[Rfam]
RNA sequence: GGAGGCGGAAAGGCUCUGGUGGGCCUCGCGGUCUUCAAAACCGUAGGCGGCGGCGCAAACCGCCGCGGGGGGUUCGAUUCCCUUCCCCUCC
Numbered sequence: 001g002g003a004g005g006c007g008g009a010a011a012g013g014c015u016c017u018g019g020u021g022g023g024c025c026u027c028g029c030g031g032u033c034u035u036c037a038a039a040a041c042c043g044u045a046g047g048c049g050g051c052g053g054c055g056c057a058a059a060c061c062g063c064c065g066c067g068g069g070g071g072g073u074u075c076g077a078u079u080c081c082c083u084u085c086c087c088c089u090c091c
Stems, first nucleotide, its partner, number of pairs: 001091005007085002011026006028044005047066005069083004
RNA: Selenocysteine transfer RNA